Nucleotides: 080
Stems, first nucleotide, its partner, number of pairs: 002080004006074008015065002018062011032048005
Number, partner (000 for none) and nucleotide at each position: 001000u002080g003079u004078a005077c006074u007073a008072u009071g010070u011069u012068g013067g014000g015065c016064u017000a018062c019061a020060u021059c022058a023057g024056u025055c026054a027053u028052g029000c030000c031000a032048u033047g034046u035045u036044a037000u038000g039000a040000a041000a042000c043000c044036u045035a046034a047033c048032a049000c050000a051000a052028u053027g054026u055025g056024a057023u058022u059021g060020a061019u062018g063000c064016a065015g066000g067013u068012u069011g070010a071009c072008a073007u074006g075000a076000u077005g078004u079003g080002u